[Rfam]
RNA sequence: GUUCUUUCACCGCCUAAGGCAACGCCGCUUCCUCGGCGUUUUCACGGGGGACCCAAAUUCCACCGCGCUCGCGCGCGGCGGACGGGGCGCAUGGUCGCGGGCAACCGCGAGCAAGGUCACUUCCUAGGACCUAGCCCGUCAGCUAACCUCGUCGGCAAUGGGAAGGGUGAUC
Numbered sequence: 001g002u003u004c005u006u007u008c009a010c011c012g013c014c015u016a017a018g019g020c021a022a023c024g025c026c027g028c029u030u031c032c033u034c035g036g037c038g039u040u041u042u043c044a045c046g047g048g049g050g051a052c053c054c055a056a057a058u059u060c061c062a063c064c065g066c067g068c069u070c071g072c073g074c075g076c077g078g079c080g081g082a083c084g085g086g087g088c089g090c091a092u093g094g095u096c097g098c099g100g101g102c103a104a105c106c107g108c109g110a111g112c113a114a115g116g117u118c119a120c121u122u123c124c125u126a127g128g129a130c131c132u133a134g135c136c137c138g139u140c141a142g143c144u145a146a147c148c149u150c151g152u153c154g155g156c157a158a159u160g161g162g163a164a165g166g167g168u169g170a171u172c
Stems, first nucleotide, its partner, number of pairs: 012156003018043002044152006054084001085137003093112001095110005115131004
c-di-AMP riboswitch aptamer (ydaO/yuaA leader): a 172-nucleotide sequence from Lacunisphaera limnophila.